[Rfam]
Background
A member of the RNA family "Group I catalytic intron" from Tetrapyrgos nigripes, 286 nucleotides long. NCBI's taxonomy places the organism under Eukaryota, Agaricomycotina, Marasmiineae, Campanellaceae, Tetrapyrgos. Group I catalytic introns are large self-splicing ribozymes. They catalyse their own excision from mRNA, tRNA and rRNA precursors in a wide range of organisms.
RNA sequence: AUACUUAAAUUGUAAAGAUUGGCUCCUUAAAGCAGUAAUGUUUUAGAGGCAUAAUGGGGAGAAUUGCAAGGACGUCUUAAUUAUUACCACCGUAAUUGAGAUUACUUGCAGCGAAGUUUGAGUCGGUAUUUUUUUAGUUUUAUAAUAAAUUCUAAAUUAAAGGGUCAAGAACGUUCAACGACUAAUGAGUGAGUUAUACCAACAAUAAGCUCGACACGAGAACCCCACAACCAAUAUAUAUAAUUUUUUGGUUGAAGACAUAGUCUAAACAUCGUUAAAACGAUGA
Numbered sequence: 001a002u003a004c005u006u007a008a009a010u011u012g013u014a015a016a017g018a019u020u021g022g023c024u025c026c027u028u029a030a031a032g033c034a035g036u037a038a039u040g041u042u043u044u045a046g047a048g049g050c051a052u053a054a055u056g057g058g059g060a061g062a063a064u065u066g067c068a069a070g071g072a073c074g075u076c077u078u079a080a081u082u083a084u085u086a087c088c089a090c091c092g093u094a095a096u097u098g099a100g101a102u103u104a105c106u107u108g109c110a111g112c113g114a115a116g117u118u119u120g121a122g123u124c125g126g127u128a129u130u131u132u133u134u135u136a137g138u139u140u141u142a143u144a145a146u147a148a149a150u151u152c153u154a155a156a157u158u159a160a161a162g163g164g165u166c167a168a169g170a171a172c173g174u175u176c177a178a179c180g181a182c183u184a185a186u187g188a189g190u191g192a193g194u195u196a197u198a199c200c201a202a203c204a205a206u207a208a209g210c211u212c213g214a215c216a217c218g219a220g221a222a223c224c225c226c227a228c229a230a231c232c233a234a235u236a237u238a239u240a241u242a243a244u245u246u247u248u249u250g251g252u253u254g255a256a257g258a259c260a261u262a263g264u265c266u267a268a269a270c271a272u273c274g275u276u277a278a279a280a281c282g283a284u285g286a
Stems, first nucleotide, its partner, number of pairs: 003024001005022004031042003055227004065110006075101009111174002117168002178266001180265005230252005236246001238244001271284005